[Rfam]
RNA: TPP riboswitch aptamer (THI element)
RNA sequence: UAAAUUAACUAGGGGCGCAAUUUGCUGAGACGGUGUCGAACCGAACCCUUUGAACCUGUGAGCUAACCCUCGCGUAGGAAAGUUAAUGUGACUUGCU
Number, nucleotide and partner (000 for none) at each position: 001u000002a000003a000004a000005u000006u085007a084008a083009c082010u081011a049012g048013g047014g046015g000016c043017g025018c024019a023020a000021u000022u000023u019024g018025c017026u000027g000028a000029g000030a000031c000032g042033g041034u040035g000036u000037c000038g000039a000040a034041c033042c032043g016044a000045a000046c014047c013048c012049u011050u000051u000052g000053a000054a000055c078056c077057u076058g075059u072060g071061a070062g069063c000064u000065a000066a000067c000068c000069c062070u061071c060072g059073c000074g000075u058076a057077g056078g055079a000080a000081a010082g009083u008084u007085a006086a000087u000088g000089u000090g000091a000092c000093u000094u000095g000096c000097u000